[Rfam]
RNA sequence: CAACUAAAUCGGUAAAAUUAGGGAAACCUAAUGACACAAAGCUAUAGGGUCUAAUUUAGACAGCCAGUUGCAAGA
Numbered sequence: 001c002a003a004c005u006a007a008a009u010c011g012g013u014a015a016a017a018u019u020a021g022g023g024a025a026a027c028c029u030a031a032u033g034a035c036a037c038a039a040a041g042c043u044a045u046a047g048g049g050u051c052u053a054a055u056u057u058a059g060a061c062a063g064c065c066a067g068u069u070g071c072a073a074g075a
Stems, first nucleotide, its partner, number of pairs: 012037002017032006040069004047065002049061003